[Rfam]
RNA sequence: UUAUAAGCAAAAAUACACUUUUUAGGUUCAUUGUAUAUUUAAUGUAUCUGGUCUAUAUUGUAGAUCAGAUACAUUAAAUAUACAAUGAACCUAAAAUGUGCAUUUUUGCUUAUAA
Numbered sequence: 001u002u003a004u005a006a007g008c009a010a011a012a013a014u015a016c017a018c019u020u021u022u023u024a025g026g027u028u029c030a031u032u033g034u035a036u037a038u039u040u041a042a043u044g045u046a047u048c049u050g051g052u053c054u055a056u057a058u059u060g061u062a063g064a065u066c067a068g069a070u071a072c073a074u075u076a077a078a079u080a081u082a083c084a085a086u087g088a089a090c091c092u093a094a095a096a097u098g099u100g101c102a103u104u105u106u107u108g109c110u111u112a113u114a115a
Stems, first nucleotide, its partner, number of pairs: 002114006009107005016100003020096006027089018049067004